RNA: Lysine riboswitch aptamer
RNA sequence: AGUGCUGAUAGAGGUGCGAGAUUCAAGAGUAGAAACCUGGAGAAGUAUGAGCUUCUAUGAAAGGUUUUGAAAGGGGAAAUCGCCGAAGGAAAACAAAACUCAUACUUUGUUUUUCUGGUUUGACAUUGAAUAAAUGGCAGACUGUCAGGAAGAAUUUCCUGGAGAGCUAUCUCACUG
Dot-bracket structure: ......(((((....((((..(((.......(((((((.......................)))))))......)))..))))...(((((((((((........)))))))))))((((((.((((.....)))).)))))).(((((((....)))))))....)))))......
Numbered sequence: 001a002g003u004g005c006u007g008a009u010a011g012a013g014g015u016g017c018g019a020g021a022u023u024c025a026a027g028a029g030u031a032g033a034a035a036c037c038u039g040g041a042g043a044a045g046u047a048u049g050a051g052c053u054u055c056u057a058u059g060a061a062a063g064g065u066u067u068u069g070a071a072a073g074g075g076g077a078a079a080u081c082g083c084c085g086a087a088g089g090a091a092a093a094c095a096a097a098a099c100u101c102a103u104a105c106u107u108u109g110u111u112u113u114u115c116u117g118g119u120u121u122g123a124c125a126u127u128g129a130a131u132a133a134a135u136g137g138c139a140g141a142c143u144g145u146c147a148g149g150a151a152g153a154a155u156u157u158c159c160u161g162g163a164g165a166g167c168u169a170u171c172u173c174a175c176u177g
Stems, first nucleotide, its partner, number of pairs: 007171005016083004022077003032068007087116011117143006124136004145162007